The record is a 101-nucleotide RNA from Leptobrachium leishanense, which matches "Vault RNA" in Rfam. From the family's description: This family of RNAs are found as part of the enigmatic vault ribonucleoprotein complex. The complex consists of a major vault protein (MVP), two minor vault proteins (VPARP and TEP1), and several small untranslated RNA molecules. It has been suggested that the vault complex is involved in drug resistance. The family's RNA type in Rfam is non-coding RNA gene. NCBI's taxonomy places the organism under Eukaryota, Opisthokonta, Tetrapoda, Anura, Leptobrachium.

[Rfam]
RNA sequence: AGGUCGGCUGUGGCUCAGCGGUUACUUCUUCAACCAAUCUUUACUCCCAAUGAAGCUUUCCCUAACGGGAUCGAUCCCCGCGGGCGCUACCUGACCUUUUA
Numbered sequence: 001a002g003g004u005c006g007g008c009u010g011u012g013g014c015u016c017a018g019c020g021g022u023u024a025c026u027u028c029u030u031c032a033a034c035c036a037a038u039c040u041u042u043a044c045u046c047c048c049a050a051u052g053a054a055g056c057u058u059u060c061c062c063u064a065a066c067g068g069g070a071u072c073g074a075u076c077c078c079c080g081c082g083g084g085c086g087c088u089a090c091c092u093g094a095c096c097u098u099u100u101a
Stems, first nucleotide, its partner, number of pairs: 002096006013085004018081004027074002